[Rfam]
RNA sequence: GACUUAUUUUCAGUGGCAAGGUUAACCGAAUAGGGUAGCCGUAGCGAAAGCGAGUCUUAAUAGGGCGCCGCUCUUUUUAGAGUAACAAGUCGCUGGGAAUAGACCCGAAACCGGGCGAUCUAUCCAUGAGCAGGUUGAAGAUCAGGUAACACUGAUUGGAGGACCGAACCCACUGUCGUUGAAAAGCCAGGGGAUGACUUGUGGAUAGGAGUGAAAGGCUAAUCAAGCCCGGAGAUAGCUGGUU
Numbered sequence: 001g002a003c004u005u006a007u008u009u010u011c012a013g014u015g016g017c018a019a020g021g022u023u024a025a026c027c028g029a030a031u032a033g034g035g036u037a038g039c040c041g042u043a044g045c046g047a048a049a050g051c052g053a054g055u056c057u058u059a060a061u062a063g064g065g066c067g068c069c070g071c072u073c074u075u076u077u078u079a080g081a082g083u084a085a086c087a088a089g090u091c092g093c094u095g096g097g098a099a100u101a102g103a104c105c106c107g108a109a110a111c112c113g114g115g116c117g118a119u120c121u122a123u124c125c126a127u128g129a130g131c132a133g134g135u136u137g138a139a140g141a142u143c144a145g146g147u148a149a150c151a152c153u154g155a156u157u158g159g160a161g162g163a164c165c166g167a168a169c170c171c172a173c174u175g176u177c178g179u180u181g182a183a184a185a186g187c188c189a190g191g192g193g194a195u196g197a198c199u200u201g202u203g204g205a206u207a208g209g210a211g212u213g214a215a216a217g218g219c220u221a222a223u224c225a226a227g228c229c230c231g232g233a234g235a236u237a238g239c240u241g242g243u244u
Stems, first nucleotide, its partner, number of pairs: 005101013020040004026034002044051002054066004104242002107239001111232006120208011131196001133165004140157006169193003173190003177186001210220003
A member of the RNA family "Bacterial large subunit ribosomal RNA" from Endozoicomonas montiporae, 244 nucleotides of a longer RNA. Its family is annotated with ribosome and structural constituent of ribosome in the Gene Ontology. The family's consensus secondary structure is taken from published work. Lineage of the source: Bacteria > Pseudomonadati > Pseudomonadota > Oceanospirillales > Endozoicomonas. It scores 2834 bits against the family's covariance model.